[Rfam]
Shown here is a 72-nucleotide sequence from Myripristis murdjan, a member of the family "Small nucleolar RNA SNORD59". The literature on the family includes a 2002 paper in Mol Cell Biol by Galardi et al., "Purified box C/D snoRNPs are able to reproduce site-specific 2'-O-methylation of target RNA in vitro". Its family is annotated with nucleolus and RNA processing in the Gene Ontology. The base pairs follow the family's consensus structure, which was predicted with ILM. Clan: SNORD59 clan. Taxonomically the source falls in Myripristis (Eukaryota, Euteleostomi, Teleostei, Clupeocephala).
Nucleotides: 072
Base pairs, nucleotide, nucleotide: 001072002071003070005068
Number, partner (000 for none) and nucleotide at each position: 001072u002071c003070u004000u005068c006000g007000a008000u009000g010000a011000u012000g013000a014000u015000u016000g017000a018000c019000a020000c021000a022000g023000u024000g025000a026000c027000u028000u029000u030000c031000g032000u033000u034000c035000u036000u037000c038000u039000g040000a041000g042000u043000u044000u045000a046000c047000u048000g049000a050000a051000g052000c053000c054000c055000u056000u057000u058000c059000u060000g061000u062000c063000c064000c065000u066000g067000a068005g069000a070003a071002g072001a